[Rfam]
RNA sequence: CAACCAUCCAGAGCGACCGAGAGACCUUGGCUCGACGACGUCGCAGCAACCAUCACGCCGUGCGCGUGGGGGUGCUCCUGCCAGGAUCGAUGGAAG
Dot-bracket structure: (..(((((....(((((...(((...[[[[)))......)))))((((.((..((((.......))))..))))))...(]]]]...))))))..)
RNA: SAM riboswitch aptamer (S box leader)